[Rfam]
RNA sequence: ACCGAGCUCAGUUACGAGAGCUUGUAACCCGAGUGGGGGUAUUAAGGUGAUGUGGACGCUGUUGUAGUGUUGUGGGCCUGGCUUGGGUGUGCUACUGCUGGCCCGCCCGUUCCAAGUUGCGUAGUGGACCGGCUGGGGCCUAUGCGAAAGCUGGGCCUCACGGUCCAUAAUGUGGCAGGCACAGCGUGAGGCUGGCUUUACAGAGCAGCGGCAACUGCCCGCUUCCAACGGUGGAAGGAUAACGGGCCGCUGCACUCCUGAGCCACUUGGGCCUCGCAGCCUACUACAGCGAACCAUCACUUUU
Numbered sequence: 001a002c003c004g005a006g007c008u009c010a011g012u013u014a015c016g017a018g019a020g021c022u023u024g025u026a027a028c029c030c031g032a033g034u035g036g037g038g039g040u041a042u043u044a045a046g047g048u049g050a051u052g053u054g055g056a057c058g059c060u061g062u063u064g065u066a067g068u069g070u071u072g073u074g075g076g077c078c079u080g081g082c083u084u085g086g087g088u089g090u091g092c093u094a095c096u097g098c099u100g101g102c103c104c105g106c107c108c109g110u111u112c113c114a115a116g117u118u119g120c121g122u123a124g125u126g127g128a129c130c131g132g133c134u135g136g137g138g139c140c141u142a143u144g145c146g147a148a149a150g151c152u153g154g155g156c157c158u159c160a161c162g163g164u165c166c167a168u169a170a171u172g173u174g175g176c177a178g179g180c181a182c183a184g185c186g187u188g189a190g191g192c193u194g195g196c197u198u199u200a201c202a203g204a205g206c207a208g209c210g211g212c213a214a215c216u217g218c219c220c221g222c223u224u225c226c227a228a229c230g231g232u233g234g235a236a237g238g239a240u241a242a243c244g245g246g247c248c249g250c251u252g253c254a255c256u257c258c259u260g261a262g263c264c265a266c267u268u269g270g271g272c273c274u275c276g277c278a279g280c281c282u283a284c285u286a287c288a289g290c291g292a293a294c295c296a297u298c299a300c301u302u303u304u
Base pairs, nucleotide, nucleotide: 001040002039003038004023005022006021007020008019009018028037029036030035044303045302046301047300048299049298050297051296052295054294057291058290059289060288061287062286064284065283066282067281069280070279071278072277073276074275075273076272077271078270080264081263082262083261084260085259086258087257089255090254091253093252094251099249100248101247102246103245104244105243107238108237110236111235112234113233114232116229117228118227119226121225123223124222125221126166127165128164129163130162131161134160135159136158137157138156139155140154141153142152144151145150174219175218176217177216178215185210186209187208192203193202194201
RNA: Plant signal recognition particle RNA
Organism: Triticum aestivum